[Rfam]
RNA sequence: AAAAAGUGGAGUCUAGUCACCACUUUAAAAAACAGGGCGAAAUCGAAAAGCCUCAUGAGUAGAGCAAUA
Numbered sequence: 001a002a003a004a005a006g007u008g009g010a011g012u013c014u015a016g017u018c019a020c021c022a023c024u025u026u027a028a029a030a031a032a033c034a035g036g037g038c039g040a041a042a043u044c045g046a047a048a049a050g051c052c053u054c055a056u057g058a059g060u061a062g063a064g065c066a067a068u069a
Base pairs, nucleotide, nucleotide: 006023007022008021009020036052037051038050043063044062
RNA: DUF805 RNA